Shown here is a 200-nucleotide RNA from Oryza sativa, a member of the family "MIR1435 microRNA precursor family". Pairs were carried over by alignment from the consensus structure, which was predicted with RNAalifold. Gene Ontology terms of the family: miRNA-mediated post-transcriptional gene silencing and RISC complex.
RNA sequence: UGACUUUGGUCAAAGUCAAUCUACUUUAAGUUUGACCAAGUUUUAGAAAAAAGGUAGUAACAUUUUCAAUCCAAGAUAAAUAUAUUAUGAAAAUGUAUUCAAUUAUCGAUUAAAUGAAACUAAUUUUGUGCUGUAAAUAUUACUAUAUUUGUCUACAAACUUAAUCAAACUUGAAUUAGUUUGACUUUGAUCAAAGUCAA
Numbered sequence: 001u002g003a004c005u006u007u008g009g010u011c012a013a014a015g016u017c018a019a020u021c022u023a024c025u026u027u028a029a030g031u032u033u034g035a036c037c038a039a040g041u042u043u044u045a046g047a048a049a050a051a052a053g054g055u056a057g058u059a060a061c062a063u064u065u066u067c068a069a070u071c072c073a074a075g076a077u078a079a080a081u082a083u084a085u086u087a088u089g090a091a092a093a094u095g096u097a098u099u100c101a102a103u104u105a106u107c108g109a110u111u112a113a114a115u116g117a118a119a120c121u122a123a124u125u126u127u128g129u130g131c132u133g134u135a136a137a138u139a140u141u142a143c144u145a146u147a148u149u150u151g152u153c154u155a156c157a158a159a160c161u162u163a164a165u166c167a168a169a170c171u172u173g174a175a176u177u178a179g180u181u182u183g184a185c186u187u188u189g190a191u192c193a194a195a196g197u198c199a200a
Stems, first nucleotide, its partner, number of pairs: 005195005011189009021179003025175002031169005044155004049150003055145003059141002062138004067133002072128006